[Rfam]
RNA sequence: CUGAAUUAUUAGCAAACUUGCCGAAAGGCAGGGGCGCAAAGCUAAAGGGCCUGUUCCUUUUGGGGAUGGCAGCCAGUUGCCGUU
Numbered sequence: 001c002u003g004a005a006u007u008a009u010u011a012g013c014a015a016a017c018u019u020g021c022c023g024a025a026a027g028g029c030a031g032g033g034g035c036g037c038a039a040a041g042c043u044a045a046a047g048g049g050c051c052u053g054u055u056c057c058u059u060u061u062g063g064g065g066a067u068g069g070c071a072g073c074c075a076g077u078u079g080c081c082g083u084u
Stems, first nucleotide, its partner, number of pairs: 012037002017032006040078004047074002049070003056064003
The record is an 84-nucleotide RNA sequence from Oscillospiraceae bacterium HV4-5-C5C, which matches "c-di-GMP-I riboswitch aptamer" in Rfam. A search with the family's covariance model found it, with a score of 63 bits. GEMM was predicted in a large-scale screen for bacterial structured RNA regulatory elements. Genes associated with GEMM are involved in a diverse array of functions, including chemotaxis regulation, signal transduction, secretion and chitin. NCBI's taxonomy places the organism under Bacteria, Bacillota, Clostridia, Eubacteriales, Oscillospiraceae.